Rfam assigns this 149-nucleotide RNA sequence from Amnibacterium flavum to the family "FMN riboswitch aptamer (RFN element)". The match comes from Rfam's covariance-model search (90 bits).

RNA sequence: AAUGUGCUCCGGGGUCGGUGUAAUUCCGAACCGGCGGUGAUAGUCCGCGAACCCGCCGUCCGCAUCUCACGCGAGUGAGACGAGGUCGACGGGCCGAUCCGGUGGAAUUCCGGUACCGACAGUCAAAGUCUGGAUGAGAGGCGCACAGG
Numbered sequence: 001a002a003u004g005u006g007c008u009c010c011g012g013g014g015u016c017g018g019u020g021u022a023a024u025u026c027c028g029a030a031c032c033g034g035c036g037g038u039g040a041u042a043g044u045c046c047g048c049g050a051a052c053c054c055g056c057c058g059u060c061c062g063c064a065u066c067u068c069a070c071g072c073g074a075g076u077g078a079g080a081c082g083a084g085g086u087c088g089a090c091g092g093g094c095c096g097a098u099c100c101g102g103u104g105g106a107a108u109u110c111c112g113g114u115a116c117c118g119a120c121a122g123u124c125a126a127a128g129u130c131u132g133g134a135u136g137a138g139a140g141g142c143g144c145a146c147a148g149g
Stems, first nucleotide, its partner, number of pairs: 003147005009141002016028003030129002032118002034048004043116002052093004099113004120132003